[Rfam]
RNA sequence: AAAAAUAUUAUCGUUAUGGCUCAUAUAUACCCUAGAAUAAGGCUAGGGAGUCUCUACCAGAUAACCGUAAAUUGUCUGACUAUGGGUGGAACUAACUUGUAU
Number, nucleotide and partner (000 for none) at each position: 001a000002a000003a000004a000005a000006u000007a000008u000009u000010a000011u000012c000013g000014u000015u000016a000017u000018g000019g087020c086021u085022c084023a083024u082025a081026u000027a000028u000029a000030c048031c047032c046033u045034a044035g043036a000037a000038u000039a000040a000041g000042g000043c035044u034045a033046g032047g031048g030049a000050g000051u000052c000053u000054c000055u000056a000057c000058c078059a077060g076061a075062u074063a073064a072065c000066c000067g000068u000069a000070a000071a000072u064073u063074g062075u061076c060077u059078g058079a000080c000081u025082a024083u023084g022085g021086g020087u019088g000089g000090a000091a000092c000093u000094a000095a000096c000097u000098u000099g000100u000101a000102u000
Shown here is a 102-nucleotide RNA from Gottschalkia purinilytica, a member of the family "Purine riboswitch aptamer". For this family Rfam cites "Adenine riboswitches and gene activation by disruption of a transcription terminator" (Mandal and Breaker, Nat Struct Mol Biol, 2004). The source organism's lineage runs through Bacteria, Tissierellia, Tissierellales, Gottschalkiaceae and Gottschalkia.